A member of the RNA family "Plastid-psbA-4 3UTR RNA", 57 nucleotides long.
For this family Rfam cites "Retrograde signaling in plants: A critical review focusing on the GUN pathway and beyond" (Richter et al., Plant Commun, 2023).
The family's consensus secondary structure was predicted with LocARNA.
Rfam's curators write: Plastid psbA-4 is a non-coding RNA (ncRNA) present in plastids. It was identified in inverted repeat sequences in the 3 prime untranslate region (3UTR) of photosystem II quinone-binding protein (psbA).

[Rfam]
Nucleotides: 057
Stems, first nucleotide, its partner, number of pairs: 006057011020043002024039005
Number, partner (000 for none) and nucleotide at each position: 001000a002000a003000a004000g005000a006057a007056a008055g009054g010053a011052g012051c013050a014049a015048u016047a017000a018000a019000c020043c021042c022000u023000c024039u025038u026037u027036u028035g029000a030000u031000a032000g033000a034000a035028c036027a037026a038025g039024a040000a041000a042021g043020g044000g045000u046000u047016u048015a049014u050013u051012g052011c053010u054009c055008c056007u057006u